[Rfam]
RNA sequence: AUGAAUGCAAGAGGAGAGUUUACGCCCGUAUGCCGGAUAUAAAAAAAUGGCUCGGUCGUAACGCCGAAGGAGCAAACAUAUUGUGAAUCUCUCAGGCAAAAAGACUCUUGCAGGACG
Numbered sequence: 001a002u003g004a005a006u007g008c009a010a011g012a013g014g015a016g017a018g019u020u021u022a023c024g025c026c027c028g029u030a031u032g033c034c035g036g037a038u039a040u041a042a043a044a045a046a047a048u049g050g051c052u053c054g055g056u057c058g059u060a061a062c063g064c065c066g067a068a069g070g071a072g073c074a075a076a077c078a079u080a081u082u083g084u085g086a087a088u089c090u091c092u093c094a095g096g097c098a099a100a101a102a103g104a105c106u107c108u109u110g111c112a113g114g115a116c117g
Stems, first nucleotide, its partner, number of pairs: 006112008020061004063097003066093002070091003076084002
Glycine riboswitch aptamer: a 117-nucleotide RNA from Lentibacillus sp. JNUCC-1. The match comes from Rfam's covariance-model search (67 bits). The pairing is the family consensus, mapped onto this sequence. The source organism's lineage runs through Bacteria, Bacillati, Bacilli, Caryophanales and Lentibacillus.